[Rfam]
RNA sequence: CGAGUUGGCCGGGCGGCCGCGGCAUCAGCCUGAUGUCGAGGAAAGUCCGGACUUCACAGAGCAGGGUGAUUGCUAACGGCAAUCCGAGGUGACUCGCGGGAAAGUGCCACAGAAAACAGACCGCCAGAAAUGGUAAGGGUGAAACGGUGCGGUAAGAGCGCACCAGCACCCCGGGUGACCGGGGUGGCUAGGCAAACCCCACCCGAAGCAAGGCCAAGAAGGCCGCAACUGCGGUUGCGGCCGCGCAGGCGCCCGAGGGUUGCUCGCCCGAGCCUGCGGGUAGGCCGCUUGAGGUACCCGGCGACGGGCUACCCAGAUGGAUGGUCGCCGCCCCACCGCCAGAGAUGGCGGCGGGGAACAGAAUCCGGCUUACAGGCCAACUCGUUCG
Numbered sequence: 001c002g003a004g005u006u007g008g009c010c011g012g013g014c015g016g017c018c019g020c021g022g023c024a025u026c027a028g029c030c031u032g033a034u035g036u037c038g039a040g041g042a043a044a045g046u047c048c049g050g051a052c053u054u055c056a057c058a059g060a061g062c063a064g065g066g067u068g069a070u071u072g073c074u075a076a077c078g079g080c081a082a083u084c085c086g087a088g089g090u091g092a093c094u095c096g097c098g099g100g101a102a103a104g105u106g107c108c109a110c111a112g113a114a115a116a117c118a119g120a121c122c123g124c125c126a127g128a129a130a131u132g133g134u135a136a137g138g139g140u141g142a143a144a145c146g147g148u149g150c151g152g153u154a155a156g157a158g159c160g161c162a163c164c165a166g167c168a169c170c171c172c173g174g175g176u177g178a179c180c181g182g183g184g185u186g187g188c189u190a191g192g193c194a195a196a197c198c199c200c201a202c203c204c205g206a207a208g209c210a211a212g213g214c215c216a217a218g219a220a221g222g223c224c225g226c227a228a229c230u231g232c233g234g235u236u237g238c239g240g241c242c243g244c245g246c247a248g249g250c251g252c253c254c255g256a257g258g259g260u261u262g263c264u265c266g267c268c269c270g271a272g273c274c275u276g277c278g279g280g281u282a283g284g285c286c287g288c289u290u291g292a293g294g295u296a297c298c299c300g301g302c303g304a305c306g307g308g309c310u311a312c313c314c315a316g317a318u319g320g321a322u323g324g325u326c327g328c329c330g331c332c333c334c335a336c337c338g339c340c341a342g343a344g345a346u347g348g349c350g351g352c353g354g355g356g357a358a359c360a361g362a363a364u365c366c367g368g369c370u371u372a373c374a375g376g377c378c379a380a381c382u383c384g385u386u387c388g
Base pairs, nucleotide, nucleotide: 001384002383003382004381005380006379007378008377009376010375011373012329013328014327015326016325017324018323020038021037022036023035024034025033026032027031043371044370045369047368048367049366050365051364052208053207054206055205059265060264061263062262064204065203066202067201068200069083070082071081072080073079084098085096086095087094088093099199100198104197105196106193107192108191121138122137123134124133125132126131146164147163148162149161150160151159166188167186168185169184170183171182172181173180174179212286213285214284215283245277246276247275248274249273250272257269258268259267260266293312297308298307299306300305
This 388-nucleotide RNA sequence from Mycolicibacterium smegmatis belongs to the Rfam family "Bacterial RNase P class A". The family's consensus secondary structure is taken from published work.